Rfam assigns this 106-nucleotide RNA sequence from Zea mays to the family "mir-393 microRNA precursor family". The organism belongs to Zea, within Eukaryota. The base pairs follow the family's consensus structure. The literature on the family includes a 2012 paper in J Plant Physiol by Kruszka et al., "Role of microRNAs and other sRNAs of plants in their changing environments".
RNA sequence: GGUGGAGGACUCCAAAGGGAUCGCAUUGAUCUAUUCUCACCUGCCGCCUGCUGCAUGCGAUGCGAGUCGACGACAAGAUCAGUGCAAUCCCUUUGGAAUUUUCCAC
Numbered sequence: 001g002g003u004g005g006a007g008g009a010c011u012c013c014a015a016a017g018g019g020a021u022c023g024c025a026u027u028g029a030u031c032u033a034u035u036c037u038c039a040c041c042u043g044c045c046g047c048c049u050g051c052u053g054c055a056u057g058c059g060a061u062g063c064g065a066g067u068c069g070a071c072g073a074c075a076a077g078a079u080c081a082g083u084g085c086a087a088u089c090c091c092u093u094u095g096g097a098a099u100u101u102u103c104c105a106c
Stems, first nucleotide, its partner, number of pairs: 002106005008100002011097011023085003026081001028080005